[Rfam]
DUF805b RNA: a 37-nucleotide RNA from Chitinophaga niabensis. The base pairs follow the family's consensus structure, which is taken from published work. Taxonomically the source falls in Chitinophaga (Bacteria, Pseudomonadati, Chitinophagales, Chitinophagaceae).

RNA sequence: ACAGGGGCAUCCGAAAACCUGUAUAAAAGAGUAGGCA
Numbered sequence: 001a002c003a004g005g006g007g008c009a010u011c012c013g014a015a016a017a018c019c020u021g022u023a024u025a026a027a028a029g030a031g032u033a034g035g036c037a
Stems, first nucleotide, its partner, number of pairs: 002021004011035002
It scores 46 bits against the family's covariance model.